[Rfam]
RNA: Group II catalytic intron D1-D4-7
RNA sequence: CCGGCUGUUCCAUCAGCCGUUCCCUACCCGGACAUGCGGAGCCGGCAACAGCUCCGUGUGAAGCUUCGGGGACAAUGUAGCCAACGGGUAACCGUUACACCAAACCGCGAGGCGCGGUGGAAUCUGCCAGCACGAAGGCGGUGAGGCAC
Numbered sequence: 001c002c003g004g005c006u007g008u009u010c011c012a013u014c015a016g017c018c019g020u021u022c023c024c025u026a027c028c029c030g031g032a033c034a035u036g037c038g039g040a041g042c043c044g045g046c047a048a049c050a051g052c053u054c055c056g057u058g059u060g061a062a063g064c065u066u067c068g069g070g071g072a073c074a075a076u077g078u079a080g081c082c083a084a085c086g087g088g089u090a091a092c093c094g095u096u097a098c099a100c101c102a103a104a105c106c107g108c109g110a111g112g113c114g115c116g117g118u119g120g121a122a123u124c125u126g127c128c129a130g131c132a133c134g135a136a137g138g139c140g141g142u143g144a145g146g147c148a149c
Stems, first nucleotide, its partner, number of pairs: 002019006028069005033060010044049001083096005098119004105112002124141005